[Rfam]
RNA sequence: CCCAAGUAGAGUUCUGUGAUACACUUCGACUCUAAUCGCUUGCAGUCAGUGCAUUACAGAACUUUGUUUUGGG
Numbered sequence: 001c002c003c004a005a006g007u008a009g010a011g012u013u014c015u016g017u018g019a020u021a022c023a024c025u026u027c028g029a030c031u032c033u034a035a036u037c038g039c040u041u042g043c044a045g046u047c048a049g050u051g052c053a054u055u056a057c058a059g060a061a062c063u064u065u066g067u068u069u070u071g072g073g
Base pairs, nucleotide, nucleotide: 004069005068006067007066008065009064010063011062012061013060014059015058016057022051023050024049025048028047029046030045031044